[Rfam]
Overview:
A member of the RNA family "mir-15 microRNA precursor family" from Geotrypetes seraphini, 84 nucleotides long. Rfam describes the family as follows. This family represents the related mir-15a and mir-15b sequences. In humans miR-15a and miR-16 are clustered within 0.5 kb at 13q14. This region has been shown to be deleted in more than half of B cell chronic lymphocytic leukaemias (CLL). Both miR-15a and miR-16 are deleted or down-regulated in more than two thirds of CLL cases. For this family Rfam cites "Frequent deletions and down-regulation of micro- RNA genes miR15 and miR16 at 13q14 in chronic lymphocytic leukemia" (Calin et al., Proc Natl Acad Sci U S A, 2002). Gene Ontology terms of the family: RISC complex and miRNA-mediated post-transcriptional gene silencing. The family's consensus secondary structure was predicted with RNAalifold.
RNA sequence: CUUAAAAAUACUAUAGCAGCACAUCAUGGUUUGCAUACUGUAACAAAAAUGCUAAUCAUUAUUUGCUGCUUUGGAACUUUAAGG
Numbered sequence: 001c002u003u004a005a006a007a008a009u010a011c012u013a014u015a016g017c018a019g020c021a022c023a024u025c026a027u028g029g030u031u032u033g034c035a036u037a038c039u040g041u042a043a044c045a046a047a048a049a050u051g052c053u054a055a056u057c058a059u060u061a062u063u064u065g066c067u068g069c070u071u072u073g074g075a076a077c078u079u080u081a082a083g084g
Base pairs, nucleotide, nucleotide: 001084002083003082005080006079013072015070016069017068018067019066020065021064023062024061026059027058028057029056030055031054033052034051035050036049